[Rfam]
Nucleotides: 114
Base pairs, nucleotide, nucleotide: 001070002069003068004067005066006065007064008063009062010061017031018030019029036051037050038049039048040047080106081105082104083103084102085101086100087099088098089097
Number, partner (000 for none) and nucleotide at each position: 001070c002069u003068u004067a005066c006065c007064g008063g009062a010061g011000g012000c013000u014000g015000u016000a017031u018030g019029g020000a021000u022000c023000c024000c025000g026000a027000u028000c029019c030018c031017g032000c033000c034000c035000c036051u037050c038049u039048c040047u041000c042000g043000c044000g045000a046000g047040g048039g049038a050037g051036a052000a053000c054000c055000c056000g057000u058000u059000c060000g061010u062009u063008c064007c065006g066005g067004u068003a069002a070001g071000c072000c073000a074000g075000c076000c077000c078000g079000u080106g081105c082104u083103g084102u085101c086100u087099c088098a089097c090000c091000g092000g093000u094000g095000a096000u097089g098088u099087g100086a101085g102084g103083c104082a105081g106080c107000a108000a109000c110000g111000c112000a113000a114000c